[Rfam]
RNA sequence: UUUUGGCGAGGAUUGAAACGGAAAUUCUUUUUUUUGGCGCUGCCAAAGGUGCAGCAAAAAAGAUUGGAGGGAAGAGCCGGACCGAAU
Number, nucleotide and partner (000 for none) at each position: 001u000002u000003u000004u000005g000006g000007c000008g000009a000010g078011g077012a000013u075014u074015g000016a000017a000018a000019c069020g000021g000022a000023a065024a064025u063026u062027c000028u000029u060030u059031u058032u057033u056034u054035u053036g052037g000038c000039g000040c000041u000042g000043c000044c000045a000046a000047a000048g000049g000050u000051g000052c036053a035054g034055c000056a033057a032058a031059a030060a029061a000062g026063a025064u024065u023066g000067g000068a000069g019070g000071g000072a000073a000074g014075a013076g000077c011078c010079g000080g000081a000082c000083c000084g000085a000086a000087u000
RNA: Flavo-1 RNA